Alphaproteobacteria transfer-messenger RNA: a 373-nucleotide sequence from alpha proteobacterium U9-1i. The match comes from Rfam's covariance-model search (207 bits).
RNA sequence: CGCCUUCCAGCAGCCGCAUUGACCGCCUAUGUUCCGACUCGUCCGGAGCUUGCUCCGGACUAUGGCGAUAAACGCGCGGAGAUAGACGGAUCGGACCCGGGUGCGAUGCCCGGCGGCUCCACCAGUUUCAUCCAAAUGGGGUCGCCCCCAAGCGGAUGGUUAUGGGGCCGAAAUAGGAUCGACGGACGUUGAAGGUCGUUGCUUUUGCUCGGGUGGUCCCGUCACAGGCCGAACAGCAAUAGUUGCCAAUGACAACAAUGCUGAGGAAUUCGCCCUCGCUGCGUAAGCAGUGCGGAGUUUUCCGAACCUAAGCCCUGACGAGUAGCAUCUUCAGGCGGGGCCCCCCGGCGCCCGGCAACAGAAGCCGGGGAUU
Numbered sequence: 001c002g003c004c005u006u007c008c009a010g011c012a013g014c015c016g017c018a019u020u021g022a023c024c025g026c027c028u029a030u031g032u033u034c035c036g037a038c039u040c041g042u043c044c045g046g047a048g049c050u051u052g053c054u055c056c057g058g059a060c061u062a063u064g065g066c067g068a069u070a071a072a073c074g075c076g077c078g079g080a081g082a083u084a085g086a087c088g089g090a091u092c093g094g095a096c097c098c099g100g101g102u103g104c105g106a107u108g109c110c111c112g113g114c115g116g117c118u119c120c121a122c123c124a125g126u127u128u129c130a131u132c133c134a135a136a137u138g139g140g141g142u143c144g145c146c147c148c149c150a151a152g153c154g155g156a157u158g159g160u161u162a163u164g165g166g167g168c169c170g171a172a173a174u175a176g177g178a179u180c181g182a183c184g185g186a187c188g189u190u191g192a193a194g195g196u197c198g199u200u201g202c203u204u205u206u207g208c209u210c211g212g213g214u215g216g217u218c219c220c221g222u223c224a225c226a227g228g229c230c231g232a233a234c235a236g237c238a239a240u241a242g243u244u245g246c247c248a249a250u251g252a253c254a255a256c257a258a259u260g261c262u263g264a265g266g267a268a269u270u271c272g273c274c275c276u277c278g279c280u281g282c283g284u285a286a287g288c289a290g291u292g293c294g295g296a297g298u299u300u301u302c303c304g305a306a307c308c309u310a311a312g313c314c315c316u317g318a319c320g321a322g323u324a325g326c327a328u329c330u331u332c333a334g335g336c337g338g339g340g341c342c343c344c345c346c347g348g349c350g351c352c353c354g355g356c357a358a359c360a361g362a363a364g365c366c367g368g369g370g371a372u373u
Base pairs, nucleotide, nucleotide: 041060042059043058044057045056046055047054048053064209065208066207067206068205074202075201076200077198078197079196087188088187091185092184093183097113098112099111100110101109114170115169116168117167118166119165120164210221211220212219213218214232216230338353339352340351341350344369345368346367347366348365349364